[Rfam]
RNA sequence: CAUAGUAGCAGCGUUAGUCGGGUGCGAACCCCGACGGCCAAACGGAUAAGGGUUCCUCGGCAAUGCUGAUCAGCCGAGGGUUAGCCGGUCCUAAGACUCGUCGCAAUUCGAGCGAGUCAAAGCAGGGUAACAGGUUAAUAUUCCUGUGCCACCACACAGUGAAAGCUGACGUCUCGGGGUCACUCACGCCGGGUUCGCGCCCGGCCGAAUCGUCAAAGCCCGUGGAAGCCGUAAUGGCAGGAAGCGGUCGAACGGCGAGAUAGCGCAAGGUGAGCCAACCUGGGACCCGUGAAAAGGCGAGUGUGGUGUCCGUACCGAGAACCGACACAGGUAUCCGUGGCGGCGAAAGCCAAGGCCUGU
Numbered sequence: 001c002a003u004a005g006u007a008g009c010a011g012c013g014u015u016a017g018u019c020g021g022g023u024g025c026g027a028a029c030c031c032c033g034a035c036g037g038c039c040a041a042a043c044g045g046a047u048a049a050g051g052g053u054u055c056c057u058c059g060g061c062a063a064u065g066c067u068g069a070u071c072a073g074c075c076g077a078g079g080g081u082u083a084g085c086c087g088g089u090c091c092u093a094a095g096a097c098u099c100g101u102c103g104c105a106a107u108u109c110g111a112g113c114g115a116g117u118c119a120a121a122g123c124a125g126g127g128u129a130a131c132a133g134g135u136u137a138a139u140a141u142u143c144c145u146g147u148g149c150c151a152c153c154a155c156a157c158a159g160u161g162a163a164a165g166c167u168g169a170c171g172u173c174u175c176g177g178g179g180u181c182a183c184u185c186a187c188g189c190c191g192g193g194u195u196c197g198c199g200c201c202c203g204g205c206c207g208a209a210u211c212g213u214c215a216a217a218g219c220c221c222g223u224g225g226a227a228g229c230c231g232u233a234a235u236g237g238c239a240g241g242a243a244g245c246g247g248u249c250g251a252a253c254g255g256c257g258a259g260a261u262a263g264c265g266c267a268a269g270g271u272g273a274g275c276c277a278a279c280c281u282g283g284g285a286c287c288c289g290u291g292a293a294a295a296g297g298c299g300a301g302u303g304u305g306g307u308g309u310c311c312g313u314a315c316c317g318a319g320a321a322c323c324g325a326c327a328c329a330g331g332u333a334u335c336c337g338u339g340g341c342g343g344c345g346a347a348a349g350c351c352a353a354g355g356c357c358u359g360u
Base pairs, nucleotide, nucleotide: 017035018034019033020032021031022030036357037356038355039354044336045335046334047333050316051315055079056078057077058076059075060074064072065071086312087311088310090126091125095118096117097116098115099114100113101111102110103109130147131146132145133144134143150308151307152306153305154304155303156302157301165298166297167296171286172285173284174283175282176281177280178279183274184273185272186271188205189204190203191202192201210258211257212256213255220247221246222245223244228238229237230236264269322331323330338352339351340350341349
RNA: Archaeal large subunit ribosomal RNA, nucleotides 1367 to 1726
Organism: Natronoarchaeum philippinense